[Rfam]
RNA: Plastid-psbA-4 3UTR RNA
RNA sequence: GAAAGUAAAGGGGCAGUACCAAUUUUUUGACAGAACAAUAAAUUGGUUAUUGCUCCUUUACUA
Numbered sequence: 001g002a003a004a005g006u007a008a009a010g011g012g013g014c015a016g017u018a019c020c021a022a023u024u025u026u027u028u029g030a031c032a033g034a035a036c037a038a039u040a041a042a043u044u045g046g047u048u049a050u051u052g053c054u055c056c057u058u059u060a061c062u063a
Base pairs, nucleotide, nucleotide: 007059008058009057010056011055012054013053014052015051016050017049018048021044022043024041025040027038028037029036